This 77-nucleotide sequence from Parnassius apollo belongs to the Rfam family "Mammalian CPEB3 ribozyme". NCBI's taxonomy places the organism under Eukaryota, Arthropoda, Glossata, Parnassiinae, Parnassius.
[Rfam]
RNA sequence: AAUAUUGUAUUGGGGGUCAUUGUAGAAACGUGCUCGUCGCGACCCCUGCCAGUCCUUUUCAGGGCUGCAAUUCUCCA
Numbered sequence: 001a002a003u004a005u006u007g008u009a010u011u012g013g014g015g016g017u018c019a020u021u022g023u024a025g026a027a028a029c030g031u032g033c034u035c036g037u038c039g040c041g042a043c044c045c046c047u048g049c050c051a052g053u054c055c056u057u058u059u060c061a062g063g064g065c066u067g068c069a070a071u072u073c074u075c076c077a
Stems, first nucleotide, its partner, number of pairs: 013046006021077002024074004029039002050067007